Description
Rfam assigns this 178-nucleotide RNA from Ligilactobacillus apodemi to the family "Lysine riboswitch aptamer". The organism belongs to Ligilactobacillus apodemi, within Bacteria. Pairs were carried over by alignment from the consensus structure, which is taken from published work. Riboswitches are metabolite binding domains within certain messenger RNAs that serve as precision sensors for their corresponding targets. Allosteric rearrangement of mRNA structure is mediated by ligand binding, and this results in modulation of gene expression.
[Rfam]
RNA sequence: CGUCGAAGAAGAGGUCGCAAAAACCAUCAGUAACUGGAUCGAGUUGAUAAAGCAACGGUGAGAUGCAGUGAAAGGGGAAUUUGCCGAAGCGAGCCAAACUUUAUUUUGGUAAAGCUGGGUCCUAGUUUAAGAGACUAGGAACUGUCGUGGUCAAAAACUACGGAGCGCUAUCGAGAUG
Numbered sequence: 001c002g003u004c005g006a007a008g009a010a011g012a013g014g015u016c017g018c019a020a021a022a023a024c025c026a027u028c029a030g031u032a033a034c035u036g037g038a039u040c041g042a043g044u045u046g047a048u049a050a051a052g053c054a055a056c057g058g059u060g061a062g063a064u065g066c067a068g069u070g071a072a073a074g075g076g077g078a079a080u081u082u083g084c085c086g087a088a089g090c091g092a093g094c095c096a097a098a099c100u101u102u103a104u105u106u107u108g109g110u111a112a113a114g115c116u117g118g119g120u121c122c123u124a125g126u127u128u129a130a131g132a133g134a135c136u137a138g139g140a141a142c143u144g145u146c147g148u149g150g151u152c153a154a155a156a157a158c159u160a161c162g163g164a165g166c167g168c169u170a171u172c173g174a175g176a177u178g
Base pairs, nucleotide, nucleotide: 008171010169011168017084018083019082020081021080024077025076033069034068035067036066038064039063040062088116089115090114093110094109095108096107097106098105117143118142120140121139122138123137124136125135126134127133145163146162147161148160149159150158151157